[Rfam]
RNA sequence: UACUGUUAAUGAUGAAAUUGAAAAAAACAAUGGGAAUCUCUCUGAAAAGUAGUGAAGAUCAAUUUUACUGAGACAGUA
Numbered sequence: 001u002a003c004u005g006u007u008a009a010u011g012a013u014g015a016a017a018u019u020g021a022a023a024a025a026a027a028c029a030a031u032g033g034g035a036a037u038c039u040c041u042c043u044g045a046a047a048a049g050u051a052g053u054g055a056a057g058a059u060c061a062a063u064u065u066u067a068c069u070g071a072g073a074c075a076g077u078a
Base pairs, nucleotide, nucleotide: 001078002077003076004075005074006073007072